[Rfam]
RNA sequence: CACUGAUGGGCCUGAAUUUGUUGCUCGAACCUGUAUUUAGACUAGGUGAGCAAACUUUCAGGUGUGUUAGUGC
Numbered sequence: 001c002a003c004u005g006a007u008g009g010g011c012c013u014g015a016a017u018u019u020g021u022u023g024c025u026c027g028a029a030c031c032u033g034u035a036u037u038u039a040g041a042c043u044a045g046g047u048g049a050g051c052a053a054a055c056u057u058u059c060a061g062g063u064g065u066g067u068u069a070g071u072g073c
Stems, first nucleotide, its partner, number of pairs: 002071006010063006016056001018054002024050004030046003
Rfam assigns this 73-nucleotide RNA from Operophtera brumata to the family "mir-87 microRNA precursor family". The literature on the family includes a 2003 paper in Dev Biol by Sempere et al., "Temporal regulation of microRNA expression in Drosophila melanogaster mediated by hormonal signals and broad-Complex gene activity". Gene Ontology terms of the family: miRNA-mediated post-transcriptional gene silencing and RISC complex. The organism belongs to Operophtera, within Eukaryota.